[Rfam]
RNA sequence: GCUGGUGUGUGUGAUGAUUGAACUUUUUUCCCUGACAGAUCGACUCUGUUGAUUGAUAAUAUAAGCCAGUUUAAUCUGAUACAUCGUU
Numbered sequence: 001g002c003u004g005g006u007g008u009g010u011g012u013g014a015u016g017a018u019u020g021a022a023c024u025u026u027u028u029u030c031c032c033u034g035a036c037a038g039a040u041c042g043a044c045u046c047u048g049u050u051g052a053u054u055g056a057u058a059a060u061a062u063a064a065g066c067c068a069g070u071u072u073a074a075u076c077u078g079a080u081a082c083a084u085c086g087u088u
Stems, first nucleotide, its partner, number of pairs: 001088001003086007
RNA: Small nucleolar SNORD12/SNORD106